This 86-nucleotide RNA sequence from Steroidobacter denitrificans belongs to the Rfam family "c-di-GMP-I riboswitch aptamer".
RNA sequence: UCAAACAAUGGGCAAACUCGCCGAAAGGCGGGGACGCAAAGCUUCCGGUCUACAGGAAUCAUUCCCAGGACAGCGGGGUUGCCGCG
Numbered sequence: 001u002c003a004a005a006c007a008a009u010g011g012g013c014a015a016a017c018u019c020g021c022c023g024a025a026a027g028g029c030g031g032g033g034a035c036g037c038a039a040a041g042c043u044u045c046c047g048g049u050c051u052a053c054a055g056g057a058a059u060c061a062u063u064c065c066c067a068g069g070a071c072a073g074c075g076g077g078g079u080u081g082c083c084g085c086g
Stems, first nucleotide, its partner, number of pairs: 012037002017032006040080004045076003048071003055065004
Dot-bracket structure: ...........((...((((((....))))))...))..((((.((((((....((((...))))...)))..)))))))......